A member of the RNA family "small nucleolar RNA snoR135" from Ananas comosus, 144 nucleotides long. On this family, see Chen and Wu, Nucleic Acids Res 2009: "Mining small RNA sequencing data: a new approach to identify small nucleolar RNAs in Arabidopsis". The source organism's lineage runs through Eukaryota, Embryophyta, commelinids, Bromeliaceae and Ananas. Rfam links the family to the GO terms RNA processing and nucleolus.
RNA sequence: GAAGCAGGAUAAGUGUGUAUCGUGCUAUGCCUGUUCAUGCAUUUCUAGCCGAAAGUGUUUCCUGCUAUAGAAAUAUUGGGGAAGUGGCAGUUGGGCUUGCACGCUAAUUGUAUGGCUAUCUCAACAAUCAUUUUCCUCACAUGC
Dot-bracket structure: ...((((((.....((((((................)))))).................))))))............((((((((((..((((((........................))))))..)))))))))).......
Numbered sequence: 001g002a003a004g005c006a007g008g009a010u011a012a013g014u015g016u017g018u019a020u021c022g023u024g025c026u027a028u029g030c031c032u033g034u035u036c037a038u039g040c041a042u043u044u045c046u047a048g049c050c051g052a053a054a055g056u057g058u059u060u061c062c063u064g065c066u067a068u069a070g071a072a073a074u075a076u077u078g079g080g081g082a083a084g085u086g087g088c089a090g091u092u093g094g095g096c097u098u099g100c101a102c103g104c105u106a107a108u109u110g111u112a113u114g115g116c117u118a119u120c121u122c123a124a125c126a127a128u129c130a131u132u133u134u135c136c137u138c139a140c141a142u143g144c
Stems, first nucleotide, its partner, number of pairs: 004065006015042006078137010090125006